[Rfam]
RNA: c-di-GMP-I-GGC riboswitch aptamer
Organism: Paenibacillus mucilaginosus
RNA sequence: UCCGACAAAGGCAAACUCCUCUAAAGGGGAGGACGCAAAGCCACGGGCCUACCGAACAUCCUGUUCCACGGCUGCCGGGCUGCCGUUA
Dot-bracket structure: (.((......((...((((((....))))))..[))..((((.((((((....................))).])))))))..))..)